Shown here is a 452-nucleotide sequence from Granulibacter bethesdensis, a member of the family "Bacterial RNase P class A". The sequence is in the family's curated seed alignment. Rfam classes the family as a ribozyme. The organism belongs to Granulibacter bethesdensis, within Bacteria.
[Rfam]
RNA sequence: CCAGACGGUCGGACGGCCGCUGACCCUCCCGCUUUCGGGCAGAGGGGUUGGAGGAAAGUCCGGGCUCCACGGGAAUACGGUGCCGGCUAACGGCCGGCGGGGGCGACCCCAGGGAUAGUGCCACAGAAAACAAACCGCCCUUCCACCAUGCUUCGGCAUGAUCCGAAGGGCAUGGGUGAAACGGUGCGGUAAAAGCGCACCGCGCCCCCGGCAACGGGGGUGGCAGGGCAAACCCCACCGGGAGCAAGACCGAAUAGGGGCGGCCAGCGAGGCCCGUGUGCUCAGGACCGCAAGGUCAUGGGAUUUCAUGGGCCGGCGCAGGAGCAUUCCCGCUCCGCUGCCCGGGUUGGUCGCGUGAGGCGUGCAGCGAUGUACGUCCCAGAGGAAUGGCCGUCUCAUCCGCUUCUUUGGAAACGGGUGGACAGAACCCGGCUUACAGGCCGUCUGGCGCU
Numbered sequence: 001c002c003a004g005a006c007g008g009u010c011g012g013a014c015g016g017c018c019g020c021u022g023a024c025c026c027u028c029c030c031g032c033u034u035u036c037g038g039g040c041a042g043a044g045g046g047g048u049u050g051g052a053g054g055a056a057a058g059u060c061c062g063g064g065c066u067c068c069a070c071g072g073g074a075a076u077a078c079g080g081u082g083c084c085g086g087c088u089a090a091c092g093g094c095c096g097g098c099g100g101g102g103g104c105g106a107c108c109c110c111a112g113g114g115a116u117a118g119u120g121c122c123a124c125a126g127a128a129a130a131c132a133a134a135c136c137g138c139c140c141u142u143c144c145a146c147c148a149u150g151c152u153u154c155g156g157c158a159u160g161a162u163c164c165g166a167a168g169g170g171c172a173u174g175g176g177u178g179a180a181a182c183g184g185u186g187c188g189g190u191a192a193a194a195g196c197g198c199a200c201c202g203c204g205c206c207c208c209c210g211g212c213a214a215c216g217g218g219g220g221u222g223g224c225a226g227g228g229c230a231a232a233c234c235c236c237a238c239c240g241g242g243a244g245c246a247a248g249a250c251c252g253a254a255u256a257g258g259g260g261c262g263g264c265c266a267g268c269g270a271g272g273c274c275c276g277u278g279u280g281c282u283c284a285g286g287a288c289c290g291c292a293a294g295g296u297c298a299u300g301g302g303a304u305u306u307c308a309u310g311g312g313c314c315g316g317c318g319c320a321g322g323a324g325c326a327u328u329c330c331c332g333c334u335c336c337g338c339u340g341c342c343c344g345g346g347u348u349g350g351u352c353g354c355g356u357g358a359g360g361c362g363u364g365c366a367g368c369g370a371u372g373u374a375c376g377u378c379c380c381a382g383a384g385g386a387a388u389g390g391c392c393g394u395c396u397c398a399u400c401c402g403c404u405u406c407u408u409u410g411g412a413a414a415c416g417g418g419u420g421g422a423c424a425g426a427a428c429c430c431g432g433c434u435u436a437c438a439g440g441c442c443g444u445c446u447g448g449c450g451c452u
Stems, first nucleotide, its partner, number of pairs: 001448010011437001012395007020051008056435003060432005065244004073330001075328001078240005083097005098112001099110004113235002118233002120229003135175002137171007183201006202224001203222008248352004258343006321336005359378008
Dot-bracket structure: ((((((((((((((((((.((((((((................))))))))....[[[.[[[[[((((....[.[..((((((((((.....)))))(((((....)))).)((...(((((............(((((((((.....................)))))))..)).......((((((.......))))))(((((((((....)))))))).)..)))..)))))))))))))...((((......((((((.........................................................(((((..].].))))).)))))).....))))......((((((((....))))))))..........)))))))................................]]]]]]]].).))))))))))....